[Rfam]
RNA: azaaromatic riboswitch aptamer (yjdF RNA)
RNA sequence: CGGUCAAAGCGUAAAAACACGGUCCGGUUGGUAGUCCGGAUGCGCCGCAGGUCAGGCGGCGUCGUAGCCUUCCCCCUCGGGAUGUCCCUCGCUUUGUCAUCAACU
Numbered sequence: 001c002g003g004u005c006a007a008a009g010c011g012u013a014a015a016a017a018c019a020c021g022g023u024c025c026g027g028u029u030g031g032u033a034g035u036c037c038g039g040a041u042g043c044g045c046c047g048c049a050g051g052u053c054a055g056g057c058g059g060c061g062u063c064g065u066a067g068c069c070u071u072c073c074c075c076c077u078c079g080g081g082a083u084g085u086c087c088c089u090c091g092c093u094u095u096g097u098c099a100u101c102a103a104c105u
Stems, first nucleotide, its partner, number of pairs: 005096007022041006042062006071082004